[Rfam]
RNA sequence: GACCUAUACAGAUGUAUCAACGCAAGACAGUUGAGCAUCUCCCUGUAGGAACAUGUUUUUACAGAAGCAUUGACAACAAGUCUUAUUGUGUGGCUUUUAAGUUGAAAUAAGAUGAGUUAAUGUGGAAUAGGUUAACCGUAAGACCUUGAAUUGAAAAAUUCUAAAAUUGACCUAGAAAUGGAAAUUUCUGAAUGUUUAAUUUUUAGUUACGAUUAA
Numbered sequence: 001g002a003c004c005u006a007u008a009c010a011g012a013u014g015u016a017u018c019a020a021c022g023c024a025a026g027a028c029a030g031u032u033g034a035g036c037a038u039c040u041c042c043c044u045g046u047a048g049g050a051a052c053a054u055g056u057u058u059u060u061a062c063a064g065a066a067g068c069a070u071u072g073a074c075a076a077c078a079a080g081u082c083u084u085a086u087u088g089u090g091u092g093g094c095u096u097u098u099a100a101g102u103u104g105a106a107a108u109a110a111g112a113u114g115a116g117u118u119a120a121u122g123u124g125g126a127a128u129a130g131g132u133u134a135a136c137c138g139u140a141a142g143a144c145c146u147u148g149a150a151u152u153g154a155a156a157a158a159u160u161c162u163a164a165a166a167u168u169g170a171c172c173u174a175g176a177a178a179u180g181g182a183a184a185u186u187u188c189u190g191a192a193u194g195u196u197u198a199a200u201u202u203u204u205a206g207u208u209a210c211g212a213u214u215a216a
Stems, first nucleotide, its partner, number of pairs: 001052001003049006010040006017034005022028001067123008081112007092103002095100001129146005135213001137211004141167001148161005172206008181197003
Rfam assigns this 216-nucleotide RNA sequence to the family "IS605-orfB-I RNA". It is one of the family's seed sequences. Pairs were carried over by alignment from the consensus structure, which is taken from published work. Rfam classes the family as a small RNA.